[Rfam]
RNA sequence: CCAAAACUAGACGAUGGUCAUUUUCUAAUUGAUUCUUAGUGUGUAAAAAUUUUAUAAGAACCAAUUAGAAAAUGACAAGUGACUAAUUUUGG
Numbered sequence: 001c002c003a004a005a006a007c008u009a010g011a012c013g014a015u016g017g018u019c020a021u022u023u024u025c026u027a028a029u030u031g032a033u034u035c036u037u038a039g040u041g042u043g044u045a046a047a048a049a050u051u052u053u054a055u056a057a058g059a060a061c062c063a064a065u066u067a068g069a070a071a072a073u074g075a076c077a078a079g080u081g082a083c084u085a086a087u088u089u090u091g092g
Base pairs, nucleotide, nucleotide: 002091003090004089005088006087008085009084010083012081013080015078017076018075019074020073021072022071023070024069025068026067027066028065029064030063031062033060034059035058036057037056038055